Shown here is a 132-nucleotide RNA from Pleurocapsa sp. CCALA 161, a member of the family "c-di-AMP riboswitch aptamer (ydaO/yuaA leader)". The match comes from Rfam's covariance-model search (64 bits). The source organism's lineage runs through Bacteria, Bacillati, Cyanobacteriota, Pleurocapsaceae and Pleurocapsa.
Nucleotides: 132
Stems, first nucleotide, its partner, number of pairs: 003027002029112006039046002047097003055073004076091004
Number, partner (000 for none) and nucleotide at each position: 001000a002000g003027u004026u005000g006000g007000a008000a009000a010000a011000a012000a013000c014000c015000a016000g017000c018000a019000a020000a021000a022000c023000a024000a025000a026004a027003g028000a029112g030111c031110g032109g033108g034107g035000g036000a037000a038000c039046c040045a041000u042000u043000u044000a045040u046039g047097g048096g049095g050000c051000u052000u053000a054000u055073u056072g057071c058070u059000a060000c061000a062000g063000u064000u065000u066000a067000u068000g069000u070058a071057g072056u073055g074000a075000a076091g077090g078089a079088c080000a081000u082000c083000u084000c085000u086000c087000a088079g089078u090077c091076c092000u093000a094000g095049c096048c097047c098000g099000u100000c101000a102000g103000c104000u105000a106000a107034c108033c109032u110031c111030g112029u113000c114000g115000g116000c117000a118000u119000u120000g121000a122000g123000a124000g125000g126000a127000g128000a129000u130000u131000g132000a